[Rfam]
This 83-nucleotide RNA from Streptomyces sp. SirexAA-E belongs to the Rfam family "nrdJ RNA".

RNA sequence: ACCUGCUCCGCGGCGCUGUGCGUGGCGCCGCGAGCAUCAGACACACACUGUGCCCUGGGAAGAACUGGGCACUUCAGGGCGUU
Numbered sequence: 001a002c003c004u005g006c007u008c009c010g011c012g013g014c015g016c017u018g019u020g021c022g023u024g025g026c027g028c029c030g031c032g033a034g035c036a037u038c039a040g041a042c043a044c045a046c047a048c049u050g051u052g053c054c055c056u057g058g059g060a061a062g063a064a065c066u067g068g069g070c071a072c073u074u075c076a077g078g079g080c081g082u083u
Stems, first nucleotide, its partner, number of pairs: 004036004009032010050072006057065001